Annotation:
The family of this 99-nucleotide sequence from Kandleria vitulina is "THF (Tetrahydrofolate) riboswitch aptamer". Rfam describes the family as follows. Tetrahydrofolate (THF) riboswitch was first reported for Ames et al. as an RNA motif in 5' untranslated (5'-UTR)regions of folate transport and biosynthesis genes in Firmicutes genomes. The match comes from Rfam's covariance-model search (90 bits). NCBI's taxonomy places the organism under Bacteria, Bacillati, Erysipelotrichia, Coprobacillaceae, Kandleria vitulina. The literature on the family includes a 2011 paper in Structure by Trausch et al., "The structure of a tetrahydrofolate-sensing riboswitch reveals two ligand binding sites in a single aptamer". Rfam 15.1 lists 747 matches to the family in 747 species.
RNA sequence: UGCAGAGUAGAUGACGAGGCGUUAAGUGCCUAGUGAACGGGGAGUUGUCACUAGGACGAAAAGUAUUAUCUUGCGGUUUCAUCAUCGCAUCCCGCUGCU
Numbered sequence: 001u002g003c004a005g006a007g008u009a010g011a012u013g014a015c016g017a018g019g020c021g022u023u024a025a026g027u028g029c030c031u032a033g034u035g036a037a038c039g040g041g042g043a044g045u046u047g048u049c050a051c052u053a054g055g056a057c058g059a060a061a062a063g064u065a066u067u068a069u070c071u072u073g074c075g076g077u078u079u080c081a082u083c084a085u086c087g088c089a090u091c092c093c094g095c096u097g098c099u
Stems, first nucleotide, its partner, number of pairs: 002098004010086005016080004020075003026057002029055008040092003044088001061072003